[Rfam]
RNA sequence: UUCGUCUUGGUCUAGGAUUGUUGGAGGAGUCAGAAAAACUACCCCAGGGAUCCUGAAGUCCUUUGGGUGGA
Numbered sequence: 001u002u003c004g005u006c007u008u009g010g011u012c013u014a015g016g017a018u019u020g021u022u023g024g025a026g027g028a029g030u031c032a033g034a035a036a037a038a039c040u041a042c043c044c045c046a047g048g049g050a051u052c053c054u055g056a057a058g059u060c061c062u063u064u065g066g067g068u069g070g071a
Stems, first nucleotide, its partner, number of pairs: 002070006009061002012058002014054006021047004026043002028040003
Rfam assigns this 71-nucleotide sequence from Homo sapiens to the family "mir-601 microRNA precursor family".
Pairs were carried over by alignment from the consensus structure, which was predicted with RNAalifold.